[Rfam]
RNA sequence: AAAACGUAAAUUCGCCGAGCUUCCGUUGCUAAAUUUCAUGUAAAUAUGCAGCCUUAGCCGUGAUUAUUCUUUAAUCGCCAGGGUUAAUAGGGAAACUUAUUAGCCUCCCGACAUUUGGAAAGGUGAAAUGUUAACUGACAA
Numbered sequence: 001a002a003a004a005c006g007u008a009a010a011u012u013c014g015c016c017g018a019g020c021u022u023c024c025g026u027u028g029c030u031a032a033a034u035u036u037c038a039u040g041u042a043a044a045u046a047u048g049c050a051g052c053c054u055u056a057g058c059c060g061u062g063a064u065u066a067u068u069c070u071u072u073a074a075u076c077g078c079c080a081g082g083g084u085u086a087a088u089a090g091g092g093a094a095a096c097u098u099a100u101u102a103g104c105c106u107c108c109c110g111a112c113a114u115u116u117g118g119a120a121a122g123g124u125g126a127a128a129u130g131u132u133a134a135c136u137g138a139c140a141a
Stems, first nucleotide, its partner, number of pairs: 006132001011127006019058003025052005033045004060078007081106011107118002
RNA: Molybdenum/Tungsten riboswitch aptamer (Moco RNA motif)
Organism: Thalassotalea sp. PP2-459